[Rfam]
RNA sequence: ACCAAACACUGAUGGCAGUUAGUAUUUACUAAUUGAGGAAAGUCCGUACUCGCCCAAGUUGCGAUGCUUGGAAAGUUAGUGCCAGAGCUAAGAACUCUGGGCCGGAAUGAAAGUUCUUGAUGGCGGACAAAGUGCCUAAAUAGUUUUAAAUUUUAAAGUGGGUAUUUUUUUGUCAUGUUCUCUAACCCACGCCUCCUUUCUUCCUACAAGGCAUUAGUCUAUAAAAGUGCUAUAGUGACGAUUACUAGGGAAACCUAGGAAGUGAGACGACGUAAACCCCGCUAGCGAGCAAUCCAAAUUAUUGGUAGGAGCAGCCCAAAGGAAGAAAUGAAUUCCAAUGGCUAUUCGCAAGAAUAAGAUAAAUCAUCAGUUAGAACAGAAUACGGCUUAUGUUU
Numbered sequence: 001a002c003c004a005a006a007c008a009c010u011g012a013u014g015g016c017a018g019u020u021a022g023u024a025u026u027u028a029c030u031a032a033u034u035g036a037g038g039a040a041a042g043u044c045c046g047u048a049c050u051c052g053c054c055c056a057a058g059u060u061g062c063g064a065u066g067c068u069u070g071g072a073a074a075g076u077u078a079g080u081g082c083c084a085g086a087g088c089u090a091a092g093a094a095c096u097c098u099g100g101g102c103c104g105g106a107a108u109g110a111a112a113g114u115u116c117u118u119g120a121u122g123g124c125g126g127a128c129a130a131a132g133u134g135c136c137u138a139a140a141u142a143g144u145u146u147u148a149a150a151u152u153u154u155a156a157a158g159u160g161g162g163u164a165u166u167u168u169u170u171u172g173u174c175a176u177g178u179u180c181u182c183u184a185a186c187c188c189a190c191g192c193c194u195c196c197u198u199u200c201u202u203c204c205u206a207c208a209a210g211g212c213a214u215u216a217g218u219c220u221a222u223a224a225a226a227g228u229g230c231u232a233u234a235g236u237g238a239c240g241a242u243u244a245c246u247a248g249g250g251a252a253a254c255c256u257a258g259g260a261a262g263u264g265a266g267a268c269g270a271c272g273u274a275a276a277c278c279c280c281g282c283u284a285g286c287g288a289g290c291a292a293u294c295c296a297a298a299u300u301a302u303u304g305g306u307a308g309g310a311g312c313a314g315c316c317c318a319a320a321g322g323a324a325g326a327a328a329u330g331a332a333u334u335c336c337a338a339u340g341g342c343u344a345u346u347c348g349c350a351a352g353a354a355u356a357a358g359a360u361a362a363a364u365c366a367u368c369a370g371u372u373a374g375a376a377c378a379g380a381a382u383a384c385g386g387c388u389u390a391u392g393u394u395u
Base pairs, nucleotide, nucleotide: 004395005394006393008371009370010369011368012367013366014365016035017034018033019032020031021030040389041388042387044386045385046384047383048382049289050288051287052286053285054071055070056069057068058067059066077284078283079282080281081280082100083099084098085097086096087095101121102119104117105116106115107114122279123278125220126219127218128217133213134212135211136210141206142205227277228276229273230272242261243260245258246257247256248255249254293310294309295308314342315341316340319339343356344355345354346353347352

This 395-nucleotide sequence belongs to the Rfam family "Bacterial RNase P class B". Rfam's curators write: Ribonuclease P (RNase P) is a ubiquitous endoribonuclease, found in archaea, bacteria and eukarya as well as chloroplasts and mitochondria. Gene Ontology terms of the family: tRNA processing, dimeric ribonuclease P complex and ribonuclease P activity. The family's consensus secondary structure is taken from published work. The family is grouped with related families in Rfam's "RNaseP clan".